[Rfam]
RNA sequence: GGAAUCCCGUCCGGUAAGGUUAGCCAACCGCCGGUAAUUAGUCUUGGAGGGCAGAGGGUAACCGCUGUCUUUAAGCGUAGACAAACAAGCAAACGGGCCGAAAGCAGUAGCUGAAGGUGUUGAGCCCCGAAAUACCGAACAUGGGAAGGCAGAUGCUAUUGCCUGAGCAGAAUGCAACAUCCUGGAAGUCGAUAAGGCUAGACGACAGGACUUCCCCGGGGUCGGAGGCCU
Numbered sequence: 001g002g003a004a005u006c007c008c009g010u011c012c013g014g015u016a017a018g019g020u021u022a023g024c025c026a027a028c029c030g031c032c033g034g035u036a037a038u039u040a041g042u043c044u045u046g047g048a049g050g051g052c053a054g055a056g057g058g059u060a061a062c063c064g065c066u067g068u069c070u071u072u073a074a075g076c077g078u079a080g081a082c083a084a085a086c087a088a089g090c091a092a093a094c095g096g097g098c099c100g101a102a103a104g105c106a107g108u109a110g111c112u113g114a115a116g117g118u119g120u121u122g123a124g125c126c127c128c129g130a131a132a133u134a135c136c137g138a139a140c141a142u143g144g145g146a147a148g149g150c151a152g153a154u155g156c157u158a159u160u161g162c163c164u165g166a167g168c169a170g171a172a173u174g175c176a177a178c179a180u181c182c183u184g185g186a187a188g189u190c191g192a193u194a195a196g197g198c199u200a201g202a203c204g205a206c207a208g209g210a211c212u213u214c215c216c217c218g219g220g221g222u223c224g225g226a227g228g229c230c231u
Stems, first nucleotide, its partner, number of pairs: 011034004018029003021200004038091001041082004045077002047072008056063002121225001122223001124222006143216006149175003154169004180210005188203003
Overview:
This 231-nucleotide RNA from Syntrophomonas wolfei belongs to the Rfam family "Group II catalytic intron D1-D4-6". Rfam 15.1 lists 1,617 matches to the family in 661 species. For this family Rfam cites "The ins and outs of group II introns" (Bonen and Vogel, Trends Genet, 2001).